This 168-nucleotide RNA from Butyrivibrio sp. INlla14 belongs to the Rfam family "Clostridiales-1 RNA". By type it is a small RNA. Taxonomically the source falls in Butyrivibrio (Bacteria, Bacillati, Bacillota, Clostridia). The family has 194 seed sequences and 1,172 matches in Rfam 15.1.
[Rfam]
RNA sequence: AGUGAUAUAGCAGACAGAAGUCAUACAUACAUGUGUUUACACAAAUGUAUGUAUGACCUCGGGAUGCGAACAUACAUGAGGAAAAAAGAUAUGUGAAUGGAAUGAACAUAUCGAUUUCCGAAUGUAUGUAGGAUUGCGAGAGUGGAACGGAGCAAUCCGUAUAUCACU
Numbered sequence: 001a002g003u004g005a006u007a008u009a010g011c012a013g014a015c016a017g018a019a020g021u022c023a024u025a026c027a028u029a030c031a032u033g034u035g036u037u038u039a040c041a042c043a044a045a046u047g048u049a050u051g052u053a054u055g056a057c058c059u060c061g062g063g064a065u066g067c068g069a070a071c072a073u074a075c076a077u078g079a080g081g082a083a084a085a086a087a088g089a090u091a092u093g094u095g096a097a098u099g100g101a102a103u104g105a106a107c108a109u110a111u112c113g114a115u116u117u118c119c120g121a122a123u124g125u126a127u128g129u130a131g132g133a134u135u136g137c138g139a140g141a142g143u144g145g146a147a148c149g150g151a152g153c154a155a156u157c158c159g160u161a162u163a164u165c166a167c168u
Stems, first nucleotide, its partner, number of pairs: 001168007011066002017060002020057012032043004070129008080119004088112007131158007142148002